Small nucleolar RNA SNORD18: an 87-nucleotide sequence from Physcomitrium patens. The family's consensus secondary structure was predicted with PFOLD. The organism belongs to Physcomitrium, within Eukaryota. Gene Ontology terms of the family: nucleolus and RNA processing. It is annotated as a C/D-box small nucleolar RNA. For this family Rfam cites "Release of U18 snoRNA from its host intron requires interaction of Nop1p with the Rnt1p endonuclease" (Giorgi et al., EMBO J, 2001). A search with the family's covariance model found it, with a score of 46 bits.
RNA sequence: UGGAGAUGAUGAUCGCAAUUGGUCCGUGUUUCUGAGAAUCCUUUUGGAUGAGUGGAGAAACACCAGCGAGUUUUGCCUACUGAUCCA
Numbered sequence: 001u002g003g004a005g006a007u008g009a010u011g012a013u014c015g016c017a018a019u020u021g022g023u024c025c026g027u028g029u030u031u032c033u034g035a036g037a038a039u040c041c042u043u044u045u046g047g048a049u050g051a052g053u054g055g056a057g058a059a060a061c062a063c064c065a066g067c068g069a070g071u072u073u074u075g076c077c078u079a080c081u082g083a084u085c086c087a
Base pairs, nucleotide, nucleotide: 001087002086003085004084